[Rfam]
RNA sequence: CACUUCUCAAUGAGCUCCUUCCUGCCAACAAAUCCGUGGCAGCCUAUGGAUUCGCACGAGAAGAAUAUUAACUGUUCAGUGCUGGCAGACUCGCAGUGGGAUUCCAUCCAUUGUGAUAAGCCACUGCUGUUCUACAUGA
Dot-bracket structure: ..((((((.....(((((...(((((...........))))).....)))...))..))))))..........(..(((..............((((((........)))))).............)))..).......
Numbered sequence: 001c002a003c004u005u006c007u008c009a010a011u012g013a014g015c016u017c018c019u020u021c022c023u024g025c026c027a028a029c030a031a032a033u034c035c036g037u038g039g040c041a042g043c044c045u046a047u048g049g050a051u052u053c054g055c056a057c058g059a060g061a062a063g064a065a066u067a068u069u070a071a072c073u074g075u076u077c078a079g080u081g082c083u084g085g086c087a088g089a090c091u092c093g094c095a096g097u098g099g100g101a102u103u104c105c106a107u108c109c110a111u112u113g114u115g116a117u118a119a120g121c122c123a124c125u126g127c128u129g130u131u132c133u134a135c136a137u138g139a
Stems, first nucleotide, its partner, number of pairs: 003063006014055002016050003022042005074132001077129003094113006
The family of this 139-nucleotide RNA from Galbula dea is "Small nucleolar RNA SNORA75". Gene Ontology terms of the family: RNA processing and nucleolus. A search with the family's covariance model found it, with a score of 83 bits. Rfam classes the family as an H/ACA-box small nucleolar RNA.